[Rfam]
RNA sequence: CGGCGGCCGCAGGCCGGACACUCUGCGGCGUGCGGCACAGCGCCGCAGGAAAGG
Numbered sequence: 001c002g003g004c005g006g007c008c009g010c011a012g013g014c015c016g017g018a019c020a021c022u023c024u025g026c027g028g029c030g031u032g033c034g035g036c037a038c039a040g041c042g043c044c045g046c047a048g049g050a051a052a053g054g
Base pairs, nucleotide, nucleotide: 006029007028008027009026010025011024031047032046033045034044035043036042
This 54-nucleotide RNA sequence belongs to the Rfam family "M23 RNA". The family's consensus secondary structure is taken from published work.